Notes
Rfam assigns this 82-nucleotide sequence from Paenibacillus baekrokdamisoli to the family "c-di-GMP-I-GGC riboswitch aptamer". The match comes from Rfam's covariance-model search (70 bits). The source organism's lineage runs through Bacteria, Bacillota, Bacilli, Caryophanales and Paenibacillus.
RNA sequence: CACGAUAACGGCAAACCUGUCGAAAGGCGGGGACGCAAAGCUAAAGGGCCUUCCCAUUUUGGAUGGCAGCCAGCUACCGAAA
Numbered sequence: 001c002a003c004g005a006u007a008a009c010g011g012c013a014a015a016c017c018u019g020u021c022g023a024a025a026g027g028c029g030g031g032g033a034c035g036c037a038a039a040g041c042u043a044a045a046g047g048g049c050c051u052u053c054c055c056a057u058u059u060u061g062g063a064u065g066g067c068a069g070c071c072a073g074c075u076a077c078c079g080a081a082a
Stems, first nucleotide, its partner, number of pairs: 003079002011036002016031006034069001039075004046071002048067003